[Rfam]
This 80-nucleotide sequence from Amazona aestiva belongs to the Rfam family "Small nucleolar RNA SNORD111". Its family is annotated with nucleolus and RNA processing in the Gene Ontology. Taxonomically the source falls in Amazona (Eukaryota, Opisthokonta, Bilateria, Archelosauria).

RNA sequence: UAGCCUGAAGUGAUGAGCUUGGUUCAUGUCUCUUCUCUGAGAUUUAUGUUGGUGAUACUCCAAAGACUCUGAUCAGGCAA
Numbered sequence: 001u002a003g004c005c006u007g008a009a010g011u012g013a014u015g016a017g018c019u020u021g022g023u024u025c026a027u028g029u030c031u032c033u034u035c036u037c038u039g040a041g042a043u044u045u046a047u048g049u050u051g052g053u054g055a056u057a058c059u060c061c062a063a064a065g066a067c068u069c070u071g072a073u074c075a076g077g078c079a080a
Stems, first nucleotide, its partner, number of pairs: 001080001003078003
For this family Rfam cites "Purified box C/D snoRNPs are able to reproduce site-specific 2'-O-methylation of target RNA in vitro" (Galardi et al., Mol Cell Biol, 2002). It is annotated as a C/D-box small nucleolar RNA. The match comes from Rfam's covariance-model search (51 bits).